Notes
A member of the RNA family "mir-71 microRNA precursor family" from Heliconius melpomene, 73 nucleotides long. The source organism's lineage runs through Eukaryota, Insecta, Panorpida, Ditrysia and Heliconius. The literature on the family includes a 2010 paper in BMC Genomics by Liu et al., "MicroRNAs of Bombyx mori identified by Solexa sequencing".

Nucleotides: 073
Base pairs, nucleotide, nucleotide: 008065009064010063011062012061013060014059017057018056019055021053022052023051024050025049026048027047
Number, partner (000 for none) and nucleotide at each position: 001000g002000c003000c004000u005000c006000a007000c008065g009064a010063a011062a012061g013060a014059c015000u016000u017057g018056g019055g020000u021053a022052g023051u024050g025049a026048g027047a028000u029000g030000u031000c032000c033000u034000g035000g036000c037000a038000c039000a040000u041000c042000a043000a044000a045000a046000u047027u048026c049025u050024c051023a052022c053021u054000a055019c056018c057017u058000u059014g060013u061012c062011u063010u064009u065008c066000a067000u068000g069000c070000g071000g072000a073000u